[Rfam]
RNA sequence: GCGCAGGGUGUUUAGGGUUCCGCCGCAUCGCGGGUCAGGUCCGAGAAACGCCACCCGAUCGGCAAAAUCCGGUCGGGCACACGGCGGGCCAAAAUCCCGGGAGGA
Numbered sequence: 001g002c003g004c005a006g007g008g009u010g011u012u013u014a015g016g017g018u019u020c021c022g023c024c025g026c027a028u029c030g031c032g033g034g035u036c037a038g039g040u041c042c043g044a045g046a047a048a049c050g051c052c053a054c055c056c057g058a059u060c061g062g063c064a065a066a067a068u069c070c071g072g073u074c075g076g077g078c079a080c081a082c083g084g085c086g087g088g089c090c091a092a093a094a095u096c097c098c099g100g101g102a103g104g105a
Base pairs, nucleotide, nucleotide: 007052008051009050010049011048012047015042016041020039021038022036023033024032025031026030054077055076056075057074058073059072060071061070062069080100082103086098087097088096